[Rfam]
RNA sequence: CGGCCGGGACGACCCGGCCCUCGAUGCGGGGCUCGGCCGGGACGACCUGG
Dot-bracket structure: .(((((((....))))))).................(((((....)))))
The record is a 50-nucleotide sequence from Oleomonas cavernae, which matches "Guanidine-II riboswitch aptamer (mini-ykkC)" in Rfam. The family's consensus secondary structure is taken from published work. A search with the family's covariance model found it, with a score of 37 bits. The source organism's lineage runs through Bacteria, Alphaproteobacteria, Acetobacterales, Acetobacteraceae and Oleomonas.